Shown here is a 239-nucleotide sequence, a member of the family "Group II catalytic intron D1-D4-6".

RNA sequence: ACAAUCCAGCCCAUGCAAAGGCUAACCACCAGCAUGGAAUAGACCUACACGGCUUGAUGAGGUAACGAAUCAGUCGAAGCUGUAGGAAUAGCGGUUUAUCAGCCACAAUGCGAAAGCGUGAAGGUUACCAGCCCCGAAAUAAUCAUCGUUGCACAUGGCCAAGGGUUUCAUUUCCUGGAAGCCAGCAUCGUGUGGAUCGACAAGGUGAGAGCUACACGAAGUGCCGGGGUCUCAGACCG
Number, nucleotide and partner (000 for none) at each position: 001a000002c000003a000004a000005u000006c000007c000008a000009g000010c000011c000012c036013a035014u034015g033016c032017a000018a000019a000020g030021g029022c000023u208024a000025a206026c205027c000028a000029c021030c020031a000032g016033c015034a014035u013036g012037g000038a000039a000040u090041a089042g000043a000044c086045c085046u084047a083048c000049a000050c076051g075052g074053c073054u000055u072056g071057a070058u069059g000060a000061g066062g000063u000064a000065a000066c061067g000068a000069a058070u057071c056072a055073g053074u052075c051076g050077a000078a000079g000080c000081u000082g000083u047084a046085g045086g044087a000088a000089u041090a040091g000092c000093g000094g000095u000096u000097u000098a000099u000100c000101a000102g000103c000104c000105a000106c000107a000108a000109u000110g000111c000112g000113a000114a000115a000116g000117c000118g000119u000120g000121a000122a000123g000124g000125u000126u000127a000128c000129c000130a000131g230132c229133c228134c227135c226136g225137a000138a000139a000140u000141a000142a000143u000144c000145a000146u000147c000148g000149u000150u000151g224152c223153a222154c221155a000156u220157g183158g182159c181160c000161a000162a000163g176164g175165g174166u000167u000168u000169c000170a000171u000172u000173u000174c165175c164176u163177g000178g000179a000180a000181g159182c158183c157184a000185g000186c000187a000188u219189c218190g217191u216192g215193u214194g213195g212196a000197u210198c209199g000200a000201c000202a000203a000204g000205g026206u025207g000208a023209g198210a197211g000212c195213u194214a193215c192216a191217c190218g189219a188220a156221g154222u153223g152224c151225c136226g135227g134228g133229g132230u131231c000232u000233c000234a000235g000236a000237c000238c000239g000
Rfam links the family to the GO term Group II intron splicing. On this family, see Lehmann and Schmidt, Crit Rev Biochem Mol Biol 2003: "Group II introns: structure and catalytic versatility of large natural ribozymes". Rfam's curators write: Group II introns are found in rRNA, tRNA and mRNA of organelles in fungi, plants and protists, and also in mRNA in bacteria.